[Rfam]
RNA: Sense overlapping transcript RNA 0042 (sot)
Organism: Halococcus morrhuae
RNA sequence: AGGUACUCCCGAAUCCUCGGCGAGAGGAUAGGGAUAACGGCUGGAUGGCACAGCCAGCGGUUCACUUGUUCGACCGCAGGGAGGGCACUUUCGUCCCCCGAGAACAAGAGCCGAACCGCGAACCAUAAUAUCCCAACUGCGGUCGGGAAACCCCGCCGUUUACGCCGGGGC
Numbered sequence: 001a002g003g004u005a006c007u008c009c010c011g012a013a014u015c016c017u018c019g020g021c022g023a024g025a026g027g028a029u030a031g032g033g034a035u036a037a038c039g040g041c042u043g044g045a046u047g048g049c050a051c052a053g054c055c056a057g058c059g060g061u062u063c064a065c066u067u068g069u070u071c072g073a074c075c076g077c078a079g080g081g082a083g084g085g086c087a088c089u090u091u092c093g094u095c096c097c098c099c100g101a102g103a104a105c106a107a108g109a110g111c112c113g114a115a116c117c118g119c120g121a122a123c124c125a126u127a128a129u130a131u132c133c134c135a136a137c138u139g140c141g142g143u144c145g146g147g148a149a150a151c152c153c154c155g156c157c158g159u160u161u162a163c164g165c166c167g168g169g170g171c
Stems, first nucleotide, its partner, number of pairs: 003038002007034004013029006039055005058118006065108007084097002087094002131148004136143002151170005157164002